RNA: MIR827 microRNA precursor family
Organism: Ensete ventricosum
RNA sequence: AUCUGUUUUGUUGAUGGUCAUCUAAUCAUUCUCAAAAUUCCUUCCUGUCUUGUCGAGUGAGGCCAUGAUUAGAUGACCAUCAGCAAACAAGUU
Numbered sequence: 001a002u003c004u005g006u007u008u009u010g011u012u013g014a015u016g017g018u019c020a021u022c023u024a025a026u027c028a029u030u031c032u033c034a035a036a037a038u039u040c041c042u043u044c045c046u047g048u049c050u051u052g053u054c055g056a057g058u059g060a061g062g063c064c065a066u067g068a069u070u071a072g073a074u075g076a077c078c079a080u081c082a083g084c085a086a087a088c089a090a091g092u093u
Stems, first nucleotide, its partner, number of pairs: 005088004010084020